[Rfam]
RNA sequence: CCGUGCAGCCGGGGAGAUGGCGGUGCCCUGUACCUACAAUCCGCCUUAGUGGGGGUGAUAUCCUGCCCCGGGCUGUUUGGUCGGAAGCUGCCCUGUAUAAGUGGCAUUGAUGUCCGGGUCCUGCGCAACAGGAACCUGUGAACCGUGUCAGGUUGGGAACAAAGCAGCACUAAGCGGGAUCUUCUGUGUGCCGCAGGGGUGCCUGGGCUGAGUUAACUGUACAGGUAACGUACCGGUCGGCAGUUCAAAGCAGGAUGCACGG
Numbered sequence: 001c002c003g004u005g006c007a008g009c010c011g012g013g014g015a016g017a018u019g020g021c022g023g024u025g026c027c028c029u030g031u032a033c034c035u036a037c038a039a040u041c042c043g044c045c046u047u048a049g050u051g052g053g054g055g056u057g058a059u060a061u062c063c064u065g066c067c068c069c070g071g072g073c074u075g076u077u078u079g080g081u082c083g084g085a086a087g088c089u090g091c092c093c094u095g096u097a098u099a100a101g102u103g104g105c106a107u108u109g110a111u112g113u114c115c116g117g118g119u120c121c122u123g124c125g126c127a128a129c130a131g132g133a134a135c136c137u138g139u140g141a142a143c144c145g146u147g148u149c150a151g152g153u154u155g156g157g158a159a160c161a162a163a164g165c166a167g168c169a170c171u172a173a174g175c176g177g178g179a180u181c182u183u184c185u186g187u188g189u190g191c192c193g194c195a196g197g198g199g200u201g202c203c204u205g206g207g208c209u210g211a212g213u214u215a216a217c218u219g220u221a222c223a224g225g226u227a228a229c230g231u232a233c234c235g236g237u238c239g240g241c242a243g244u245u246c247a248a249a250g251c252a253g254g255a256u257g258c259a260c261g262g
Stems, first nucleotide, its partner, number of pairs: 001262006008056003011029004016024001018022001033053005062254005070246006077240008086231001089227002093224006101217002103214003112208008120197006126188002129186005135178005145170004153162003

Shown here is a 262-nucleotide sequence from Clostridiaceae bacterium OM08-6BH, a member of the family "Bacterial large signal recognition particle RNA". The organism belongs to Clostridiaceae, within Bacteria. The family's consensus secondary structure is taken from published work. The family's RNA type in Rfam is non-coding RNA gene.